[Rfam]
RNA sequence: CGCCUCAAGGAGCGCUGCAGCAGCGCGCGAGCCAGUGAUUGGCUGCGCUGUCAGGCUUGGGGCCUGCGGCUGUUGUGCAGCAGCCGCCACUGCAACGGCGUUCACCUGUU
Number, nucleotide and partner (000 for none) at each position: 001c000002g063003c062004c061005u060006c059007a058008a057009g000010g000011a000012g000013c000014g000015c000016u000017g000018c000019a000020g000021c050022a049023g048024c047025g046026c045027g000028c000029g000030a000031g000032c000033c000034a000035g000036u000037g000038a000039u000040u000041g000042g000043c000044u000045g026046c025047g024048c023049u022050g021051u000052c000053a000054g000055g000056c000057u008058u007059g006060g005061g004062g003063c002064c000065u000066g000067c000068g000069g000070c000071u000072g000073u000074u000075g000076u000077g000078c000079a000080g000081c000082a000083g000084c000085c000086g000087c000088c000089a000090c000091u000092g000093c000094a000095a000096c000097g000098g000099c000100g000101u000102u000103c000104a000105c000106c000107u000108g000109u000110u000